[Rfam]
RNA sequence: AUAAGGAAGAGGAAGAAACUGAGCACCUAAGAACAUUGGGCAUGGAACAUAAAGGAAAGCCUAGACUAGUGAUACCUUCAACAAUUGGGUGGCAAUAUCUAUUUACCGAGUUUUCCCAUUGCCUGUCAUGCCUUCUCUUCUUAGGCACUCCUUCCUCUUUCUUGACUUG
Numbered sequence: 001a002u003a004a005g006g007a008a009g010a011g012g013a014a015g016a017a018a019c020u021g022a023g024c025a026c027c028u029a030a031g032a033a034c035a036u037u038g039g040g041c042a043u044g045g046a047a048c049a050u051a052a053a054g055g056a057a058a059g060c061c062u063a064g065a066c067u068a069g070u071g072a073u074a075c076c077u078u079c080a081a082c083a084a085u086u087g088g089g090u091g092g093c094a095a096u097a098u099c100u101a102u103u104u105a106c107c108g109a110g111u112u113u114u115c116c117c118a119u120u121g122c123c124u125g126u127c128a129u130g131c132c133u134u135c136u137c138u139u140c141u142u143a144g145g146c147a148c149u150c151c152u153u154c155c156u157c158u159u160u161c162u163u164g165a166c167u168u169g
Base pairs, nucleotide, nucleotide: 009160010159011158012157013156015154016153017152021150022149023148026145027144028143029142030141031140032139033138035136038133039132040131041130042129043128044127045126046124048121049120054116055115056114057113058112059111060110
RNA: MIR2118 microRNA precursor family